RNA sequence: GAAGCAGAUCAGACCGCCGCUGGUGCGAGCGUGGAAACACGGCACUGGAGGAAGGUCCGGACUGCAAAGAGCGGCGUAGCAGCUAACGGCUGCCCGGCGAAAGCCGAGGAUCAGAGCAACAGAGACGAGUCAGGUCGGGUCCGCCCGACCUGGGUGAAACGGGCAAUCUCUACGCGCAGCAACACCAAGUAGGCCAGCGAUGAUGCGGCUCGCAGAGCUGGCGGGUAGGUGGCACCGAGCCGGGCAGUGAUGCCCGGCCCAGAGGAAUGGCGGUCACGGGACCAGGCCCGCAAGGGUCAGGUCUUGCACAGAAUCCGGCCUAUCGAUCUGCUUCACCC
Numbered sequence: 001g002a003a004g005c006a007g008a009u010c011a012g013a014c015c016g017c018c019g020c021u022g023g024u025g026c027g028a029g030c031g032u033g034g035a036a037a038c039a040c041g042g043c044a045c046u047g048g049a050g051g052a053a054g055g056u057c058c059g060g061a062c063u064g065c066a067a068a069g070a071g072c073g074g075c076g077u078a079g080c081a082g083c084u085a086a087c088g089g090c091u092g093c094c095c096g097g098c099g100a101a102a103g104c105c106g107a108g109g110a111u112c113a114g115a116g117c118a119a120c121a122g123a124g125a126c127g128a129g130u131c132a133g134g135u136c137g138g139g140u141c142c143g144c145c146c147g148a149c150c151u152g153g154g155u156g157a158a159a160c161g162g163g164c165a166a167u168c169u170c171u172a173c174g175c176g177c178a179g180c181a182a183c184a185c186c187a188a189g190u191a192g193g194c195c196a197g198c199g200a201u202g203a204u205g206c207g208g209c210u211c212g213c214a215g216a217g218c219u220g221g222c223g224g225g226u227a228g229g230u231g232g233c234a235c236c237g238a239g240c241c242g243g244g245c246a247g248u249g250a251u252g253c254c255c256g257g258c259c260c261a262g263a264g265g266a267a268u269g270g271c272g273g274u275c276a277c278g279g280g281a282c283c284a285g286g287c288c289c290g291c292a293a294g295g296g297u298c299a300g301g302u303c304u305u306g307c308a309c310a311g312a313a314u315c316c317g318g319c320c321u322a323u324c325g326a327u328c329u330g331c332u333u334c335a336c337c338c
Base pairs, nucleotide, nucleotide: 001334002333003332004331005330006329007328008327009326010325011323012275013274014273015272016271017270018269020048021047022046023045024044025043026042053321054320055319057318058317059316060315061314062179063178064177065176069211070210071209072208074175075174076173077172078171079093080092081091082090083089094108095106096105097104098103109170110169114168115167116164117163131153132151133150134149135148136147137146138145139144183231184230185229186228193222194221195220196219197218198217204214205213206212239258240257241256242255243254244253245252246251

The family of this 338-nucleotide RNA from Mitsuaria sp. WAJ17 is "Bacterial RNase P class A". The family's consensus secondary structure is taken from published work. On this family, see Beauregard et al., RNA Biol 2013: "Identification and characterization of small RNAs in Yersinia pestis". Its family is annotated with ribonuclease P activity, tRNA processing and dimeric ribonuclease P complex in the Gene Ontology. By type it is a ribozyme. Ribonuclease P (RNase P) is a ubiquitous endoribonuclease, found in archaea, bacteria and eukarya as well as chloroplasts and mitochondria.